A member of the RNA family "antisense RNA of dnaA mRNA" from Vibrio cholerae, 81 nucleotides long. Taxonomically the source falls in Vibrio cholerae O1 biovar El Tor (Bacteria, Vibrionales, Vibrio cholerae, Vibrio cholerae O1). The match comes from Rfam's covariance-model search (60 bits). Its family is annotated with regulation of mRNA stability in the Gene Ontology.
RNA sequence: UUUAGCGUUCGGGUUGUUAUCAACAAUCGCGUUACCCACCGCAUGCAGCAAGUGCGUUUUACCCAAACCGGUGCCGCCAUA
Number, nucleotide and partner (000 for none) at each position: 001u000002u000003u000004a000005g042006c041007g040008u000009u038010c000011g036012g035013g000014u000015u000016g032017u031018u000019a000020u029021c000022a000023a000024c000025a000026a000027u000028c000029g020030c000031g017032u016033u000034a000035c012036c011037c000038a009039c000040c007041g006042c005043a000044u000045g000046c000047a000048g000049c000050a000051a000052g077053u076054g075055c000056g074057u073058u000059u000060u000061a072062c071063c070064c000065a000066a000067a000068c000069c000070g063071g062072u061073g057074c056075c054076g053077c052078c000079a000080u000081a000